[Rfam]
RNA sequence: CUUUAACAAUCUGGAACAAGCUGAAAUUUGAAACGAUGCGGCUAAACAUAUCUCUCCGUGUAGUACUGAGAUGUGAUUUGGCUGUAUCAGAGUCUCUCAAAUAAUCGCAACGCGAGAUGUCGAAAGACACCUUCGG
Dot-bracket structure: ...................((.((...((....(.(((((((((((..............................)))))))))))..).........))...))))....((((.((........)).).))).
RNA: Salmonella enterica Typhi npcRNA 44
Organism: Brenneria goodwinii